[Rfam]
RNA: SAM (S-adenosyl methionine) riboswitch aptamer
Organism: Actinophytocola xanthii
RNA sequence: GGUCAUGAGUGUCAGCGCCAAGCCCCGGCUCGCUGACCGGCAACCCUCCUACCGCGGUGGGGUGCCCCGGGUGAGGACCUGGCCCUCCGCGAGGUGCGGGCGGGCAAGCGCGGGCC
Numbered sequence: 001g002g003u004c005a006u007g008a009g010u011g012u013c014a015g016c017g018c019c020a021a022g023c024c025c026c027g028g029c030u031c032g033c034u035g036a037c038c039g040g041c042a043a044c045c046c047u048c049c050u051a052c053c054g055c056g057g058u059g060g061g062g063u064g065c066c067c068c069g070g071g072u073g074a075g076g077a078c079c080u081g082g083c084c085c086u087c088c089g090c091g092a093g094g095u096g097c098g099g100g101c102g103g104g105c106a107a108g109c110g111c112g113g114g115c116c
Stems, first nucleotide, its partner, number of pairs: 001079004009038001011037006021030002039066003044062003048057002082105004086100005